[Rfam]
RNA sequence: GUCGGGAGUGGGCUAAUACAAGACCCGAAAGGGGAAUACGUCCGGCCCUCUAGGUGGGGUUUCUUAACUCCCGACGCCAACAG
Numbered sequence: 001g002u003c004g005g006g007a008g009u010g011g012g013c014u015a016a017u018a019c020a021a022g023a024c025c026c027g028a029a030a031g032g033g034g035a036a037u038a039c040g041u042c043c044g045g046c047c048c049u050c051u052a053g054g055u056g057g058g059g060u061u062u063c064u065u066a067a068c069u070c071c072c073g074a075c076g077c078c079a080a081c082a083g
Stems, first nucleotide, its partner, number of pairs: 001075008010043004014038002024033003044061006

sRNA-Xcc1: an 83-nucleotide RNA from Pseudomonas sp. FeS53a. A reference for the family is Chen et al. (2011), "sRNA-Xcc1, an integron-encoded transposon- and plasmid-transferred trans-acting sRNA, is under the positive control of the key virulence regulators HrpG and HrpX of Xanthomonas campestris pathovar campestris", RNA Biol. Lineage of the source: Bacteria > Gammaproteobacteria > Pseudomonadales > Pseudomonadaceae > Pseudomonas. It scores 72 bits against the family's covariance model. By type it is a small RNA.